The family of this 111-nucleotide RNA from Pan troglodytes is "Mitochondrial DNA control region secondary structure A". By type it is an antisense RNA.
RNA sequence: AUUCUUUUUGGCGCGCAUUUUUACUACUAUGUAAGUACUGACCAUCAGCACUAAUACAUUAAUACUUUUAUGUACUUCGUGCAUUACUGCUAGUCCCCAUGAAUAUAUAGA
Numbered sequence: 001a002u003u004c005u006u007u008u009u010g011g012c013g014c015g016c017a018u019u020u021u022u023a024c025u026a027c028u029a030u031g032u033a034a035g036u037a038c039u040g041a042c043c044a045u046c047a048g049c050a051c052u053a054a055u056a057c058a059u060u061a062a063u064a065c066u067u068u069u070a071u072g073u074a075c076u077u078c079g080u081g082c083a084u085u086a087c088u089g090c091u092a093g094u095c096c097c098c099a100u101g102a103a104u105a106u107a108u109a110g111a
Base pairs, nucleotide, nucleotide: 005103006102007101009099010098011095015090016089017088021034022033023032024031025029035065036064039061040060041059070084071083072082073081074080